[Rfam]
RNA sequence: GAGACACCCUGUGGAGCAGGACUUGCUUCAGUGAGGCUUUGGUGCUCACUGAGUCUGCCUCUUGAGUAUGUCGCU
Numbered sequence: 001g002a003g004a005c006a007c008c009c010u011g012u013g014g015a016g017c018a019g020g021a022c023u024u025g026c027u028u029c030a031g032u033g034a035g036g037c038u039u040u041g042g043u044g045c046u047c048a049c050u051g052a053g054u055c056u057g058c059c060u061c062u063u064g065a066g067u068a069u070g071u072c073g074c075u
Stems, first nucleotide, its partner, number of pairs: 001074001003072004008066001010064002013061002016058003020055003028052008036043002
Background: mir-9229 microRNA precursor family: a 75-nucleotide RNA sequence from Cnephaeus nilssonii. The base pairs follow the family's consensus structure, which was predicted with RNAalifold. It scores 75 bits against the family's covariance model. Rfam 15.1 lists 27,225 matches to the family in 9 species. The source organism's lineage runs through Eukaryota, Opisthokonta, Sarcopterygii, Eutheria and Cnephaeus.